Metazoan signal recognition particle RNA: a 296-nucleotide RNA from Diabrotica balteata. Rfam classes the family as a non-coding RNA gene. Lineage of the source: Eukaryota > Bilateria > Protostomia > Aparaglossata > Diabrotica. Clan: SRP clan. On this family, see Batey et al., Science 2000: "Crystal structure of the ribonucleoprotein core of the signal recognition particle". It scores 264 bits against the family's covariance model. Rfam describes the family as follows. The signal recognition particle (SRP) is a universally conserved ribonucleoprotein.
RNA sequence: GCUGGGAGCGUGGCGUCUCCUGUAAUUCAGCUACUUGAAGGCCGGGUUCAGCGGAUGGUUUGAGGUCGGGAGCUCUGAUGUAGGAUUUCCUACGUCGACCGGGUGUCCACACUAAGCACGGCGUCGAUAUGGGCAUCCUGGAGGAAUCCGGGAUGGCCAGGUCAGCCAAGGAGGGGCGAACCGGGCCAGGGAGGAAACUCAGCAGCCAAAAGUCCCCGCGUCGUGCAGUAGUGGGAUCGCGCCUGGGAGUGGGAGUCUUACAUCAGCCCGACCAAUACAGCUAGACCUGGGUCCUU
Numbered sequence: 001g002c003u004g005g006g007a008g009c010g011u012g013g014c015g016u017c018u019c020c021u022g023u024a025a026u027u028c029a030g031c032u033a034c035u036u037g038a039a040g041g042c043c044g045g046g047u048u049c050a051g052c053g054g055a056u057g058g059u060u061u062g063a064g065g066u067c068g069g070g071a072g073c074u075c076u077g078a079u080g081u082a083g084g085a086u087u088u089c090c091u092a093c094g095u096c097g098a099c100c101g102g103g104u105g106u107c108c109a110c111a112c113u114a115a116g117c118a119c120g121g122c123g124u125c126g127a128u129a130u131g132g133g134c135a136u137c138c139u140g141g142a143g144g145a146a147u148c149c150g151g152g153a154u155g156g157c158c159a160g161g162u163c164a165g166c167c168a169a170g171g172a173g174g175g176g177c178g179a180a181c182c183g184g185g186c187c188a189g190g191g192a193g194g195a196a197a198c199u200c201a202g203c204a205g206c207c208a209a210a211a212g213u214c215c216c217c218g219c220g221u222c223g224u225g226c227a228g229u230a231g232u233g234g235g236a237u238c239g240c241g242c243c244u245g246g247g248a249g250u251g252g253g254a255g256u257c258u259u260a261c262a263u264c265a266g267c268c269c270g271a272c273c274a275a276u277a278c279a280g281c282u283a284g285a286c287c288u289g290g291g292u293c294c295u296u
Stems, first nucleotide, its partner, number of pairs: 001042003004021005026039003044294008056283005064273007075266013089253005095247001099246008107235002110233005116226009126163003130159003134155009166170001173216005184207003191200003